[Rfam]
RNA sequence: CCCCUUUUCAUUCUGCGCCAAGCGCUUAUAUCGGGAUUGUCGGCCUUCGGGUCGACUAUGGGGAUAAACGACGGCGUGCAAUAGACGCAGCGGACCCGGGGGCAGUACCCGGCGGCUCCACCAUAAAUGGUGGUGUAUCUGGACACCGUUUCUGACGGGGCCGAACCAGGAUCGACGUGUGUUGAAAAGCGCCGACUAUCUCUCAGCGUGGGCCACUGCGACGGUCCGUUACACAAGUGCCAACGAUAACGAAGCACUCGCUAUUGCGGCGUAACCCCAAGGCUUAACGGCCUAAGGUUAUUCUAAAAUGCGCGGUCGGACCCCACCGGGCAACAGAAGGGGAAUCCA
Numbered sequence: 001c002c003c004c005u006u007u008u009c010a011u012u013c014u015g016c017g018c019c020a021a022g023c024g025c026u027u028a029u030a031u032c033g034g035g036a037u038u039g040u041c042g043g044c045c046u047u048c049g050g051g052u053c054g055a056c057u058a059u060g061g062g063g064a065u066a067a068a069c070g071a072c073g074g075c076g077u078g079c080a081a082u083a084g085a086c087g088c089a090g091c092g093g094a095c096c097c098g099g100g101g102g103c104a105g106u107a108c109c110c111g112g113c114g115g116c117u118c119c120a121c122c123a124u125a126a127a128u129g130g131u132g133g134u135g136u137a138u139c140u141g142g143a144c145a146c147c148g149u150u151u152c153u154g155a156c157g158g159g160g161c162c163g164a165a166c167c168a169g170g171a172u173c174g175a176c177g178u179g180u181g182u183u184g185a186a187a188a189g190c191g192c193c194g195a196c197u198a199u200c201u202c203u204c205a206g207c208g209u210g211g212g213c214c215a216c217u218g219c220g221a222c223g224g225u226c227c228g229u230u231a232c233a234c235a236a237g238u239g240c241c242a243a244c245g246a247u248a249a250c251g252a253a254g255c256a257c258u259c260g261c262u263a264u265u266g267c268g269g270c271g272u273a274a275c276c277c278c279a280a281g282g283c284u285u286a287a288c289g290g291c292c293u294a295a296g297g298u299u300a301u302u303c304u305a306a307a308a309u310g311c312g313c314g315g316u317c318g319g320a321c322c323c324c325a326c327c328g329g330g331c332a333a334c335a336g337a338a339g340g341g342g343a344a345u346c347c348a
Stems, first nucleotide, its partner, number of pairs: 039056007060203005070196001072194001074192004086181003090178003096112005113163007204218003209228006313328004319347001324342001
Alphaproteobacteria transfer-messenger RNA: a 348-nucleotide sequence from Sphingomonas sp. G-3-2-10. By type it is a non-coding RNA gene. The match comes from Rfam's covariance-model search (198 bits). Bacterial tmRNA, also known as 10Sa RNA or SsrA, is named for its dual tRNA and mRNA-like properties. Its role is to liberate the mRNA from a stalled ribosome. To accomplish this part of the tmRNA is used as a reading frame that ends in a translation stop signal. The broken mRNA is replaced in the ribosome by the tmRNA and translation of the tmRNA leads to addition of a proteolysis tag to the incomplete protein enabling recognition by a protease. A reference for the family is Williams and Bartel (1996), "Phylogenetic analysis of tmRNA secondary structure", RNA. NCBI's taxonomy places the organism under Bacteria, Pseudomonadati, Sphingomonadales, Sphingomonadaceae, Sphingomonas.